Rfam assigns this 114-nucleotide RNA to the family "TPP riboswitch aptamer (THI element)". Rfam links the family to the GO term thiamine pyrophosphate binding. The match comes from Rfam's covariance-model search (60 bits). On this family, see Rodionov et al., J Biol Chem 2002: "Comparative genomics of thiamin biosynthesis in procaryotes. New genes and regulatory mechanisms".
RNA sequence: GGUCACGGCUAGGGGUGCCCGAGUCUGCCUUAAAAAGCAUUCCGUGUGGCUGAGAUUACACUCUCAUUACCUGAUCAGGUUAAUUCCUGCGAAGGGAAGCCGUUGACCCAUAAU
Numbered sequence: 001g002g003u004c005a006c007g008g009c010u011a012g013g014g015g016u017g018c019c020c021g022a023g024u025c026u027g028c029c030u031u032a033a034a035a036a037g038c039a040u041u042c043c044g045u046g047u048g049g050c051u052g053a054g055a056u057u058a059c060a061c062u063c064u065c066a067u068u069a070c071c072u073g074a075u076c077a078g079g080u081u082a083a084u085u086c087c088u089g090c091g092a093a094g095g096g097a098a099g100c101c102g103u104u105g106a107c108c109c110a111u112a113a114u
Base pairs, nucleotide, nucleotide: 006102007101008100009099010098011064012063013062014061016058017050018049019048070095071094072093076089077088078087079086